[Rfam]
RNA sequence: AAGAGCUUUCGGGGCGGGGUGGAAGUCCCCACCGGCGGUGAUCGGGGCGAAGGCCCCGUCAGCCCGCGAGCCGAAGGGCCUUACGGCCCGGACGCAGGAACCGGUGCGAAUCCGGUGCCGACGGUCAAAGUCCGGAUGGUAGAAGGCUUAC
Numbered sequence: 001a002a003g004a005g006c007u008u009u010c011g012g013g014g015c016g017g018g019g020u021g022g023a024a025g026u027c028c029c030c031a032c033c034g035g036c037g038g039u040g041a042u043c044g045g046g047g048c049g050a051a052g053g054c055c056c057c058g059u060c061a062g063c064c065c066g067c068g069a070g071c072c073g074a075a076g077g078g079c080c081u082u083a084c085g086g087c088c089c090g091g092a093c094g095c096a097g098g099a100a101c102c103g104g105u106g107c108g109a110a111u112c113c114g115g116u117g118c119c120g121a122c123g124g125u126c127a128a129a130g131u132c133c134g135g136a137u138g139g140u141a142g143a144a145g146g147c148u149u150a151c
Stems, first nucleotide, its partner, number of pairs: 003149008017029003031131002033120002035067004062118002072094001100116005122134003
RNA: FMN riboswitch aptamer (RFN element)